The family of this 270-nucleotide RNA sequence from Streptomyces sp. SAT1 is "Streptomyces sRNA 4677". Pairs were carried over by alignment from the consensus structure. Rfam 15.1 lists 563 matches to the family in 285 species. Rfam describes the family as follows. Located in the intergenic region between anti-sigma factor SCO4677 gene and a putative regulatory protein gene SCO4676. scr4677 expression requires the SCO4677 activity and scr4677 sRNA itself seem to affect the levels of the SCO4676-associated transcripts. Lineage of the source: Bacteria > Bacillati > Actinomycetota > Actinomycetes > Streptomyces. A search with the family's covariance model found it, with a score of 174 bits. The family's RNA type in Rfam is small RNA.
RNA sequence: UGCUCCGGUGCGGCCGGUGGCUGACAGACAAAAGACAUGCGGGGGAAAGGAAUUCCGCCGGACCCCGCCUCGCCGUACGCUGCCCGCCGUGUCCGCGCACGACCCCGGGCGCGCUCACUCGGGCGGGUGAACAUCCCCGGAUCGGCUGGAUUUCGGAGCCCCGCGCGGCUCUACGCUCAGCGCGACACAACCGCAGAAAAUGAGACGGCCCCCGCCGGGACGGCAAUCCCAGUGCGAGGGCCUGACCACCGAGGAAGUGAGCCCUUCCCG
Numbered sequence: 001u002g003c004u005c006c007g008g009u010g011c012g013g014c015c016g017g018u019g020g021c022u023g024a025c026a027g028a029c030a031a032a033a034g035a036c037a038u039g040c041g042g043g044g045g046a047a048a049g050g051a052a053u054u055c056c057g058c059c060g061g062a063c064c065c066c067g068c069c070u071c072g073c074c075g076u077a078c079g080c081u082g083c084c085c086g087c088c089g090u091g092u093c094c095g096c097g098c099a100c101g102a103c104c105c106c107g108g109g110c111g112c113g114c115u116c117a118c119u120c121g122g123g124c125g126g127g128u129g130a131a132c133a134u135c136c137c138c139g140g141a142u143c144g145g146c147u148g149g150a151u152u153u154c155g156g157a158g159c160c161c162c163g164c165g166c167g168g169c170u171c172u173a174c175g176c177u178c179a180g181c182g183c184g185a186c187a188c189a190a191c192c193g194c195a196g197a198a199a200a201u202g203a204g205a206c207g208g209c210c211c212c213c214g215c216c217g218g219g220a221c222g223g224c225a226a227u228c229c230c231a232g233u234g235c236g237a238g239g240g241c242c243u244g245a246c247c248a249c250c251g252a253g254g255a256a257g258u259g260a261g262c263c264c265u266u267c268c269c270g
Stems, first nucleotide, its partner, number of pairs: 007250004016104003115130006145181005207242005213236003217230004253268005